[Rfam]
RNA sequence: AACAUGCCGUCUGGAGAGCCGCCGCACGCAAUAUGCGGCGCACCGAAGGAGCAAGCCCCGUUCCCAUGGACGGCGGUGAAUCUCUCAGGUACCAAGGACAGGGGGAGCGGC
Numbered sequence: 001a002a003c004a005u006g007c008c009g010u011c012u013g014g015a016g017a018g019c020c021g022c023c024g025c026a027c028g029c030a031a032u033a034u035g036c037g038g039c040g041c042a043c044c045g046a047a048g049g050a051g052c053a054a055g056c057c058c059c060g061u062u063c064c065c066a067u068g069g070a071c072g073g074c075g076g077u078g079a080a081u082c083u084c085u086c087a088g089g090u091a092c093c094a095a096g097g098a099c100a101g102g103g104g105g106a107g108c109g110g111c
Stems, first nucleotide, its partner, number of pairs: 007105002010102004020040007042090003045086002049084003055077002
The record is a 111-nucleotide sequence from Delftia acidovorans, which matches "Glycine riboswitch aptamer" in Rfam. The match comes from Rfam's covariance-model search (56 bits). Rfam links the family to the GO term glycine biosynthetic process.